[Rfam]
RNA sequence: GGGGGCGACCUGGUUUCGACGGAGGUCGCGAAGCCCGCGGUGCAUGCCGAGGUGCAGUGCCCCUCGUUAAUCACACUGCAAAACCAAAUAGUUGCCAACGACGACAACUACGCACUCGCCGCUUAAAACCCGGUAGGGUGCCGUCUGACCGGGGCCGUGCCUGUGCGCCCGGACUCCAGGCGUCAUCGCUCACAGGAUCGCGAUAUCACCCGCCCGGGGCCGAAUCGCUAAAACUAUCCGGGCUCGCCGUCUGUCUUCCCUGCCCGUCGGGUAGCAGCCGGUUAAAAUAAUUGACUGGGACAAGCAUGUAGAGCCAACGGUAGAGGAUUUUCGGACGCGGGUUCGAUUCCCGCCGCCUCCACCA
Numbered sequence: 001g002g003g004g005g006c007g008a009c010c011u012g013g014u015u016u017c018g019a020c021g022g023a024g025g026u027c028g029c030g031a032a033g034c035c036c037g038c039g040g041u042g043c044a045u046g047c048c049g050a051g052g053u054g055c056a057g058u059g060c061c062c063c064u065c066g067u068u069a070a071u072c073a074c075a076c077u078g079c080a081a082a083a084c085c086a087a088a089u090a091g092u093u094g095c096c097a098a099c100g101a102c103g104a105c106a107a108c109u110a111c112g113c114a115c116u117c118g119c120c121g122c123u124u125a126a127a128a129c130c131c132g133g134u135a136g137g138g139u140g141c142c143g144u145c146u147g148a149c150c151g152g153g154g155c156c157g158u159g160c161c162u163g164u165g166c167g168c169c170c171g172g173a174c175u176c177c178a179g180g181c182g183u184c185a186u187c188g189c190u191c192a193c194a195g196g197a198u199c200g201c202g203a204u205a206u207c208a209c210c211c212g213c214c215c216g217g218g219g220c221c222g223a224a225u226c227g228c229u230a231a232a233a234c235u236a237u238c239c240g241g242g243c244u245c246g247c248c249g250u251c252u253g254u255c256u257u258c259c260c261u262g263c264c265c266g267u268c269g270g271g272u273a274g275c276a277g278c279c280g281g282u283u284a285a286a287a288u289a290a291u292u293g294a295c296u297g298g299g300a301c302a303a304g305c306a307u308g309u310a311g312a313g314c315c316a317a318c319g320g321u322a323g324a325g326g327a328u329u330u331u332c333g334g335a336c337g338c339g340g341g342u343u344c345g346a347u348u349c350c351c352g353c354c355g356c357c358u359c360c361a362c363c364a
Stems, first nucleotide, its partner, number of pairs: 001360007020333008033321003039315003043308005048066005053080007114139004118134004142182006149172004154168002160196006200228005206222001212244001214242002217239001246282004251277004258271003264299002266295003337353005
RNA: transfer-messenger RNA